The record is a 94-nucleotide sequence from Rhododendron simsii, which matches "mir-166 microRNA precursor family" in Rfam.
The organism belongs to Rhododendron, within Eukaryota.
The family has 31 seed sequences and 2,599 matches in Rfam 15.1.
The base pairs follow the family's consensus structure, which was predicted with PFOLD.
[Rfam]
Nucleotides: 094
Base pairs, nucleotide, nucleotide: 002093003092004091005090006089007088008087009086010085011084012083013082016079017078018077019076020075021074024071026069
Number, partner (000 for none) and nucleotide at each position: 001000g002093u003092u004091g005090a006089g007088g008087g009086g010085a011084a012083u013082g014000u015000a016079g017078u018077c019076u020075g021074g022000c023000u024071c025000a026069a027000a028000a029000u030000c031000g032000u033000u034000c035000g036000u037000a038000u039000a040000u041000g042000u043000g044000a045000a046000g047000c048000u049000c050000g051000a052000a053000a054000a055000c056000g057000a058000u059000a060000u061000g062000a063000a064000u065000g066000a067000u068000u069026u070000c071024g072000g073000a074021c075020c076019a077018g078017g079016c080000u081000u082013c083012a084011u085010u086009c087008c088007c089006c090005u091004c092003a093002a094000a